[Rfam]
RNA sequence: GAGCUAUGAAGAUGAAUUCAAAGGAAUCUGAGAUCCCAUUGAGGACAUAAGAUCCAACUCUGAGCUCACUGCCAUA
Numbered sequence: 001g002a003g004c005u006a007u008g009a010a011g012a013u014g015a016a017u018u019c020a021a022a023g024g025a026a027u028c029u030g031a032g033a034u035c036c037c038a039u040u041g042a043g044g045a046c047a048u049a050a051g052a053u054c055c056a057a058c059u060c061u062g063a064g065c066u067c068a069c070u071g072c073c074a075u076a
Stems, first nucleotide, its partner, number of pairs: 001067004
RNA: Small nucleolar RNA SNORD19
Organism: Columbina picui